Rfam assigns this 86-nucleotide sequence from Jeotgalibacillus campisalis to the family "c-di-GMP-I riboswitch aptamer".

[Rfam]
RNA sequence: UUUAAUAAAAGGCAAACCAGUUGAAAAGCUGGGACUGCAAAGCUACAGAUUUAAGGUAGAUAAACUAGGAUGGCUGAGCCGCUGAA
Numbered sequence: 001u002u003u004a005a006u007a008a009a010a011g012g013c014a015a016a017c018c019a020g021u022u023g024a025a026a027a028g029c030u031g032g033g034a035c036u037g038c039a040a041a042g043c044u045a046c047a048g049a050u051u052u053a054a055g056g057u058a059g060a061u062a063a064a065c066u067a068g069g070a071u072g073g074c075u076g077a078g079c080c081g082c083u084g085a086a
Stems, first nucleotide, its partner, number of pairs: 012038002017032006042079003046076003049071003056065002